[Rfam]
Small nucleolar RNA Z13/snr52: a 102-nucleotide RNA sequence from Cladophialophora carrionii. Rfam links the family to the GO terms RNA processing and nucleolus. Lineage of the source: Eukaryota > Pezizomycotina > Eurotiomycetes > Chaetothyriales > Cladophialophora.
RNA sequence: CAGGUCCCAAUGAUGAAAUAUUUCGGAUGUAAAUUCACAGACCUGUUCUGAAAGCGCAAAGCUGUGUGGAUAUUUCCGUUGCCUUCCUUCUGACCUCUACUC
Numbered sequence: 001c002a003g004g005u006c007c008c009a010a011u012g013a014u015g016a017a018a019u020a021u022u023u024c025g026g027a028u029g030u031a032a033a034u035u036c037a038c039a040g041a042c043c044u045g046u047u048c049u050g051a052a053a054g055c056g057c058a059a060a061g062c063u064g065u066g067u068g069g070a071u072a073u074u075u076c077c078g079u080u081g082c083c084u085u086c087c088u089u090c091u092g093a094c095c096u097c098u099a100c101u102c
Stems, first nucleotide, its partner, number of pairs: 003101003024078004